[Rfam]
A member of the RNA family "Small nucleolar RNA SNORA63" from Diceros bicornis, 131 nucleotides long. The source organism's lineage runs through Eukaryota, Euteleostomi, Amniota, Rhinocerotidae and Diceros bicornis. Rfam 15.1 lists 1,279 matches to the family in 601 species. E3 belongs to the H/ACA class of snoRNAs and is involved in the processing of eukaryotic pre-rRNA and has regions of complementarity to 18S rRNA. E3 is encoded in introns in the gene for protein synthesis initiation factor 4AII. The match comes from Rfam's covariance-model search (92 bits).
RNA sequence: AUGCAGGAUCUAGUUACAAUGUAGCUGUGAAGUGCCUCAUUGUCUUUGCCCCCUGCUCAGAAUAAAACUGUUACCUUCCUUGCCCUGUCUGCAGGGUGCUGUAGCAGCUGGGGAUGCAGGGUCUCAUACAU
Numbered sequence: 001a002u003g004c005a006g007g008a009u010c011u012a013g014u015u016a017c018a019a020u021g022u023a024g025c026u027g028u029g030a031a032g033u034g035c036c037u038c039a040u041u042g043u044c045u046u047u048g049c050c051c052c053c054u055g056c057u058c059a060g061a062a063u064a065a066a067a068c069u070g071u072u073a074c075c076u077u078c079c080u081u082g083c084c085c086u087g088u089c090u091g092c093a094g095g096g097u098g099c100u101g102u103a104g105c106a107g108c109u110g111g112g113g114a115u116g117c118a119g120g121g122u123c124u125c126a127u128a129c130a131u
Base pairs, nucleotide, nucleotide: 003056004055005054006053007052016043017042018041019040020039021038024035025034084112085111086110087109089107090106091105092104
Dot-bracket structure: ..(((((........((((((..((........))..))))))........)))))...........................((((.((((...........)))).))))...................

By type it is an H/ACA-box small nucleolar RNA. Rfam links the family to the GO terms RNA processing and nucleolus.